A member of the RNA family "c-di-GMP-I riboswitch aptamer" from Candidatus Izimoplasma sp. HR1, 85 nucleotides long. Gene Ontology term of the family: cyclic-di-GMP binding. The organism belongs to Candidatus Izemoplasma, within Bacteria. Pairs were carried over by alignment from the consensus structure, which is taken from published work.

[Rfam]
Nucleotides: 085
Base pairs, nucleotide, nucleotide: 012037013036017032018031019030020029021028022027041078042077043076045075046074047073048070049069050068055064056063057062
Number, partner (000 for none) and nucleotide at each position: 001000a002000u003000a004000u005000u006000c007000a008000a009000a010000g011000g012037g013036c014000a015000a016000a017032u018031a019030u020029a021028u022027g023000g024000a025000a026000a027022c028021a029020u030019a031018u032017a033000g034000a035000c036013g037012c038000a039000a040000a041078g042077u043076c044000a045075c046074a047073g048070a049069g050068c051000u052000a053000c054000a055064g056063g057062a058000g059000a060000a061000a062057u063056c064055c065000c066000a067000u068050g069049c070048u071000g072000g073047c074046u075045g076043g077042a078041c079000c080000g081000c082000a083000a084000u085000a